[Rfam]
RNA sequence: UUAAAUUUUAAACCACCUAGCGGAUGGCUAGGCUAUAGCAACGAUGAAGGCCGUGGCAAGCUGCGAUAAGCCCGGGGUAGCCGCAUGUCAGGCUUUGAACCCGGGAUUGCCGAAUUGUACGUAGCAAUACGUAUGUGUACGCGGGGAACUGAAAUAUCUUAGUACCCGCAGGAAAAGAAAGCGAGAGCGAUGCGGUAAGUAAUGCGAAUGAAAGCCGCGCAGGGCAAACUGAAUCCCGCCUUGCAAAAGGUGUGGAGAUGUGGUGCAGCGCCGAUCCAGGACAUGAGCCGAACGUUAUGGAAAGAGCGGCCAUAGAGAGUGACAGCCUCGUAGGUUAAGUGCGAUGGACCUGCUGCAAAAGAGUAAUUCCGCCUUAGUAUGUGGAGUGAAUACGGGGGCAUUAAACCCCAACCCUAAAUAUUGGCUAUAGACCGAUAGAGAACAAGUAGCGCGAGCGAAAGCUGAAAAGAACCCACACGCGUGGGAUUGAAAAGAUCUGAAACUAGGUGGUGACAUGCAGGUAAGGCACGAAAGGAAUGAUGCGCGCCGAAGCUAUGCCGGAAACGGCUAUGCGAGGAUGCGCGGAGCAGUGUCUUACCA
Numbered sequence: 001u002u003a004a005a006u007u008u009u010a011a012a013c014c015a016c017c018u019a020g021c022g023g024a025u026g027g028c029u030a031g032g033c034u035a036u037a038g039c040a041a042c043g044a045u046g047a048a049g050g051c052c053g054u055g056g057c058a059a060g061c062u063g064c065g066a067u068a069a070g071c072c073c074g075g076g077g078u079a080g081c082c083g084c085a086u087g088u089c090a091g092g093c094u095u096u097g098a099a100c101c102c103g104g105g106a107u108u109g110c111c112g113a114a115u116u117g118u119a120c121g122u123a124g125c126a127a128u129a130c131g132u133a134u135g136u137g138u139a140c141g142c143g144g145g146g147a148a149c150u151g152a153a154a155u156a157u158c159u160u161a162g163u164a165c166c167c168g169c170a171g172g173a174a175a176a177g178a179a180a181g182c183g184a185g186a187g188c189g190a191u192g193c194g195g196u197a198a199g200u201a202a203u204g205c206g207a208a209u210g211a212a213a214g215c216c217g218c219g220c221a222g223g224g225c226a227a228a229c230u231g232a233a234u235c236c237c238g239c240c241u242u243g244c245a246a247a248a249g250g251u252g253u254g255g256a257g258a259u260g261u262g263g264u265g266c267a268g269c270g271c272c273g274a275u276c277c278a279g280g281a282c283a284u285g286a287g288c289c290g291a292a293c294g295u296u297a298u299g300g301a302a303a304g305a306g307c308g309g310c311c312a313u314a315g316a317g318a319g320u321g322a323c324a325g326c327c328u329c330g331u332a333g334g335u336u337a338a339g340u341g342c343g344a345u346g347g348a349c350c351u352g353c354u355g356c357a358a359a360a361g362a363g364u365a366a367u368u369c370c371g372c373c374u375u376a377g378u379a380u381g382u383g384g385a386g387u388g389a390a391u392a393c394g395g396g397g398g399c400a401u402u403a404a405a406c407c408c409c410a411a412c413c414c415u416a417a418a419u420a421u422u423g424g425c426u427a428u429a430g431a432c433c434g435a436u437a438g439a440g441a442a443c444a445a446g447u448a449g450c451g452c453g454a455g456c457g458a459a460a461g462c463u464g465a466a467a468a469g470a471a472c473c474c475a476c477a478c479g480c481g482u483g484g485g486a487u488u489g490a491a492a493a494g495a496u497c498u499g500a501a502a503c504u505a506g507g508u509g510g511u512g513a514c515a516u517g518c519a520g521g522u523a524a525g526g527c528a529c530g531a532a533a534g535g536a537a538u539g540a541u542g543c544g545c546g547c548c549g550a551a552g553c554u555a556u557g558c559c560g561g562a563a564a565c566g567g568c569u570a571u572g573c574g575a576g577g578a579u580g581c582g583c584g585g586a587g588c589a590g591u592g593u594c595u596u597a598c599c600a
Stems, first nucleotide, its partner, number of pairs: 012511009026497001027462002031433002033430006039423002049111003052065003071105006080093003118133005140171001141169005151158002181188002192218005202209002221415004229255003239250004266355004273350001275348002287335003293308004311315001317329003366387007394409004449456002520599010534588001542583005547577002552573001557568004
Dot-bracket structure: ...........(((((((((.....(((..((((((((((........((((((........))).....((((((...(((........)))......))))))...)))......(((((......)))))......((((((.....((....))......))))).).........((....))...(((((.....((....))....)))))..((((....(((.......((((....))))..)))..........((((...(.((..........(((...((((........))))..(...).(((.......)))...)))...........)).).))))..........(((((((........)))))))......((((........))))..))))......)).)))))).))...............((....))....))..................................).....)))))))))........((((((((((....(.......(((((((...(....((((....))))....)..)).)))))....).)))))))))).
RNA: Archaeal large subunit ribosomal RNA, nucleotides 10 to 609